[Rfam]
RNA: drz-agam-1 ribozyme
Organism: Hermetia illucens
RNA sequence: CUCCUACCAAACUCUAUCUCUACCUCCACGUGGUGACCGUUGGGAGUUCUUUCUUAAUGAAAAACUGCAGACAGGGAAGG
Numbered sequence: 001c002u003c004c005u006a007c008c009a010a011a012c013u014c015u016a017u018c019u020c021u022a023c024c025u026c027c028a029c030g031u032g033g034u035g036a037c038c039g040u041u042g043g044g045a046g047u048u049c050u051u052u053c054u055u056a057a058u059g060a061a062a063a064a065c066u067g068c069a070g071a072c073a074g075g076g077a078a079g080g
Stems, first nucleotide, its partner, number of pairs: 013080003017076003022034003045066004050061002053059001